[Rfam]
About this RNA:
The family of this 87-nucleotide sequence from Myotis davidii is "mir-9195 microRNA precursor family". Its family is annotated with miRNA-mediated post-transcriptional gene silencing and RISC complex in the Gene Ontology.
RNA sequence: AGAGGCCCUCUGUAGCCAGGGUGGAAUGCUUGCCUUGUCACUGUAGCAAUGAAGCAAGCAUUCCACCAGGCCGCUCAUGCUGCCCGC
Numbered sequence: 001a002g003a004g005g006c007c008c009u010c011u012g013u014a015g016c017c018a019g020g021g022u023g024g025a026a027u028g029c030u031u032g033c034c035u036u037g038u039c040a041c042u043g044u045a046g047c048a049a050u051g052a053a054g055c056a057a058g059c060a061u062u063c064c065a066c067c068a069g070g071c072c073g074c075u076c077a078u079g080c081u082g083c084c085c086g087c
Base pairs, nucleotide, nucleotide: 004084005083006082012074013073015071016070017069020067021066022065023064024063025062026061027060028059029058030057031056032055033054037050038049041046